A member of the RNA family "Actino-pnp RNA" from Streptomyces sp. Ag109_G2-6, 75 nucleotides long. The organism belongs to Streptomyces, within Bacteria. The family's RNA type in Rfam is cis-regulatory element. It scores 63 bits against the family's covariance model.

RNA sequence: GCCGGUCCUCGGUAGUGGCAUCCGGAAAGCCCCCACGGCGGGGCAGGGAACCGGGUGCUUCGAUCGAAGACCGGC
Dot-bracket structure: (((((((.(((((...(((((((((....(((.............)))..)))))))))...))))).)))))))
Numbered sequence: 001g002c003c004g005g006u007c008c009u010c011g012g013u014a015g016u017g018g019c020a021u022c023c024g025g026a027a028a029g030c031c032c033c034c035a036c037g038g039c040g041g042g043g044c045a046g047g048g049a050a051c052c053g054g055g056u057g058c059u060u061c062g063a064u065c066g067a068a069g070a071c072c073g074g075c
Stems, first nucleotide, its partner, number of pairs: 001075007009067005017059009030048003